[Rfam]
RNA sequence: CGAGUUCGCUCUUUCUUGGACGUUUCCUCCCUAAACUUGGCGGCACCUUCGGGUUGCCGCCUUUUUUUUGCCCUGC
Numbered sequence: 001c002g003a004g005u006u007c008g009c010u011c012u013u014u015c016u017u018g019g020a021c022g023u024u025u026c027c028u029c030c031c032u033a034a035a036c037u038u039g040g041c042g043g044c045a046c047c048u049u050c051g052g053g054u055u056g057c058c059g060c061c062u063u064u065u066u067u068u069u070g071c072c073c074u075g076c
Base pairs, nucleotide, nucleotide: 008021010019011018039061040060041059042058043057044056045055047053
Dot-bracket structure: .......(.((......)).).................(((((((.(.....).)))))))...............
Record summary
A member of the RNA family "Makes More Granules Regulator RNA (mmgR)" from Acetobacteraceae bacterium H6797, 76 nucleotides long. SuhB later renamed mmgR (makes more granules regulator) was a putative non-coding RNA found multiple times in the Agrobacterium tumefaciens genome and related alpha-proteobacteria. Other non-coding RNAs uncovered in the same analysis include: speF, ybhL, metA, and serC.Several studies inSinorhizobium meliloti showed that suhB element is indeed a non-coding RNA:firstly it was detected on Northern blot and called Sm8RNA, secondly in an RNAseq study referred to as SmelC689.The mutant phenotype's (strain lacking the small RNA) cytoplasm contains higher content of polyhydroxybutyrate (PBH)storage granules than wild type strain. The sRNA is required to limit the PBH intracellular accumulation when the nitrogen-fixing Sinorhizobium meliloti is under condition of surplus carbon in relation to nitrogen. It has been renamed to mmgR. Further study confirmed that mmgR fine-tunes the regulation of PBH storage.Northern blot confirmed the expression of the sRNA in other rhizobia species. MmgR homologues were found in most alpha-proteobacteria. The family has 87 seed sequences and 1,791 matches in Rfam 15.1. Pairs were carried over by alignment from the consensus structure.